[Rfam]
RNA sequence: GGGAUCCGUUCGCAACAUUCGUCUGGCAGAGACGGGGGAACCAUAUGCGGGCUUCUUUCGAGAAGUCCUAGGGGUGAAGCCGCUGAGGUCCAUGAGUUCAGGCUCAUGGAUGGAAGCGGCCGGGUGACUCCCAUCCGAAUCCGACAGCUUACCUCGCAGGCUUUGGGAGAGGUCAA
Numbered sequence: 001g002g003g004a005u006c007c008g009u010u011c012g013c014a015a016c017a018u019u020c021g022u023c024u025g026g027c028a029g030a031g032a033c034g035g036g037g038g039a040a041c042c043a044u045a046u047g048c049g050g051g052c053u054u055c056u057u058u059c060g061a062g063a064a065g066u067c068c069u070a071g072g073g074g075u076g077a078a079g080c081c082g083c084u085g086a087g088g089u090c091c092a093u094g095a096g097u098u099c100a101g102g103c104u105c106a107u108g109g110a111u112g113g114a115a116g117c118g119g120c121c122g123g124g125u126g127a128c129u130c131c132c133a134u135c136c137g138a139a140u141c142c143g144a145c146a147g148c149u150u151a152c153c154u155c156g157c158a159g160g161c162u163u164u165g166g167g168a169g170a171g172g173u174c175a176a
Stems, first nucleotide, its partner, number of pairs: 005030002033156005042071001072142003080119004122136004

The family of this 176-nucleotide RNA from Psychromicrobium silvestre is "c-di-AMP riboswitch aptamer (ydaO/yuaA leader)". This family represents a conserved RNA structure found upstream of the ydaO and yuaA genes in Bacillus subtilis and related genes in other bacteria. NCBI's taxonomy places the organism under Bacteria, Actinomycetota, Micrococcales, Micrococcaceae, Psychromicrobium.